RNA sequence: AUGAUGAGACUUCCGCCUUCGGGCGGCUCGGUGAGAACCACGGAGAGGCGACAACCUAUGG
Numbered sequence: 001a002u003g004a005u006g007a008g009a010c011u012u013c014c015g016c017c018u019u020c021g022g023g024c025g026g027c028u029c030g031g032u033g034a035g036a037a038c039c040a041c042g043g044a045g046a047g048g049c050g051a052c053a054a055c056c057u058a059u060g061g
Stems, first nucleotide, its partner, number of pairs: 012058001013026004027045003031041003046057003
RNA: pemK RNA
Organism: Faecalibacterium sp. An121